[Rfam]
RNA sequence: GGCUCAAUGAUUAUAUUCCUUGCACAGGCUAUAUACGCUAUUCUCAUUAGUAUAUUAUCAAUAGGAUAAAACCUAAAUUCGUAUCAGAGCU
Numbered sequence: 001g002g003c004u005c006a007a008u009g010a011u012u013a014u015a016u017u018c019c020u021u022g023c024a025c026a027g028g029c030u031a032u033a034u035a036c037g038c039u040a041u042u043c044u045c046a047u048u049a050g051u052a053u054a055u056u057a058u059c060a061a062u063a064g065g066a067u068a069a070a071a072c073c074u075a076a077a078u079u080c081g082u083a084u085c086a087g088a089g090c091u
Stems, first nucleotide, its partner, number of pairs: 001091005